[Rfam]
Shown here is a 113-nucleotide RNA, a member of the family "J750 non-coding RNA (containing SLSL761 and SL783)". The family's RNA type in Rfam is cis-regulatory element. The base pairs follow the family's consensus structure, which was predicted with RNAfold.
RNA sequence: AUCCCAGUCCUAGGGGCGCCACUUGGUGGCGUUGCAGCUGCCCUGGCACACGGUGUUAGAGCAGUUGAGGACGGGAUUAAUUAUGCAACAGGGAAUUUACCCGGUUGCUCCUU
Numbered sequence: 001a002u003c004c005c006a007g008u009c010c011u012a013g014g015g016g017c018g019c020c021a022c023u024u025g026g027u028g029g030c031g032u033u034g035c036a037g038c039u040g041c042c043c044u045g046g047c048a049c050a051c052g053g054u055g056u057u058a059g060a061g062c063a064g065u066u067g068a069g070g071a072c073g074g075g076a077u078u079a080a081u082u083a084u085g086c087a088a089c090a091g092g093g094a095a096u097u098u099a100c101c102c103g104g105u106u107g108c109u110c111c112u113u
Stems, first nucleotide, its partner, number of pairs: 001077005007072003013033002016030002019026002035067007043059007085108005091102003
Dot-bracket structure: (((((.(((...((.((.((....))..)).)).(((((((.(((((((...))))))).)))))))..)))))))).......(((((.(((......))).))))).....

Background
For this family Rfam cites "The Coding Region of the HCV Genome Contains a Network of Regulatory RNA Structures" (Pirakitikulr et al., Mol Cell, 2016).